Rfam assigns this 100-nucleotide sequence from Halobellus sp. Atlit-38R to the family "L4-Archaeoglobi ribosomal protein leades". The base pairs follow the family's consensus structure, which is taken from published work. The literature on the family includes a 2020 paper in BMC Microbiol by Eckert and Weinberg, "Discovery of 20 novel ribosomal leader candidates in bacteria and archaea".
RNA sequence: CUGACGGCCGCGUUCGGGUCAAUUGCGGACUGCAACACCCGGUCUCUCUCCACACGCCUCCGUCGAUGGAGGUCGAGGAGGGGACGCGCGUCGCCAUCAG
Number, nucleotide and partner (000 for none) at each position: 001c100002u099003g098004a097005c000006g000007g000008c000009c090010g089011c088012g087013u086014u000015c041016g040017g039018g038019u000020c000021a000022a000023u035024u034025g033026c032027g031028g000029a000030c000031u027032g026033c025034a024035a023036c000037a000038c018039c017040c016041g015042g000043u084044c083045u082046c081047u080048c077049u076050c075051c000052a073053c072054a000055c000056g000057c000058c000059u000060c000061c000062g000063u000064c000065g000066a000067u000068g000069g000070a000071g000072g053073u052074c000075g050076a049077g048078g000079a000080g047081g046082g045083g044084a043085c000086g013087c012088g011089c010090g009091u000092c000093g000094c000095c000096a000097u004098c003099a002100g001
The match comes from Rfam's covariance-model search (65 bits).